[Rfam]
Source information
ZMP/ZTP riboswitch aptamer (pfl RNA motif): an 84-nucleotide sequence from Dactylosporangium sucinum.

RNA sequence: GGUGGCAGACGCGACUGGCGGCACCAAGGAUGGGCAACCAUCGGGGAGCUCCGUUCGCGGGAGUCGACCGCCUGGGCUCCCGCG
Numbered sequence: 001g002g003u004g005g006c007a008g009a010c011g012c013g014a015c016u017g018g019c020g021g022c023a024c025c026a027a028g029g030a031u032g033g034g035c036a037a038c039c040a041u042c043g044g045g046g047a048g049c050u051c052c053g054u055u056c057g058c059g060g061g062a063g064u065c066g067a068c069c070g071c072c073u074g075g076g077c078u079c080c081c082g083c084g
Stems, first nucleotide, its partner, number of pairs: 004055002008052001011049002015045002017072005030041004061079005
Description
The organism belongs to Dactylosporangium, within Bacteria. Its family is annotated with one-carbon metabolic process and regulation of purine nucleotide biosynthetic process in the Gene Ontology. The family's consensus secondary structure is taken from published work. For this family Rfam cites "Recognition of the bacterial alarmone ZMP through long-distance association of two RNA subdomains" (Jones and Ferre-D'Amare, Nat Struct Mol Biol, 2015). The match comes from Rfam's covariance-model search (45 bits).